[Rfam]
RNA sequence: AAAAAGGGCUUCUGCCGUGCGUGGCACGGGGGGGCGUCAGGGCCACCCCCGCGGAAUCGUCAUCAAGAGAUUUCGGAAGCACAAUUUUUAGCACAGAGGGCCGCUGGUAACCGCUUGUUCCGGCGCCUCC
Numbered sequence: 001a002a003a004a005a006g007g008g009c010u011u012c013u014g015c016c017g018u019g020c021g022u023g024g025c026a027c028g029g030g031g032g033g034g035c036g037u038c039a040g041g042g043c044c045a046c047c048c049c050c051g052c053g054g055a056a057u058c059g060u061c062a063u064c065a066a067g068a069g070a071u072u073u074c075g076g077a078a079g080c081a082c083a084a085u086u087u088u089u090a091g092c093a094c095a096g097a098g099g100g101c102c103g104c105u106g107g108u109a110a111c112c113g114c115u116u117g118u119u120c121c122g123g124c125g126c127c128u129c130c
Base pairs, nucleotide, nucleotide: 008080009079010078011077012076013026014025015024016023017022027051028050029049030048031047032046034043035042052075053074054073055072056071057070058069098128099127100126101125103124104123105122106121107120109119110118111117
Source information:
The family of this 130-nucleotide RNA sequence from Upupa epops is "U11 spliceosomal RNA". It scores 108 bits against the family's covariance model. The family's consensus secondary structure is taken from published work. The source organism's lineage runs through Eukaryota, Craniata, Aves, Upupidae and Upupa. By type it is a spliceosomal small nuclear RNA.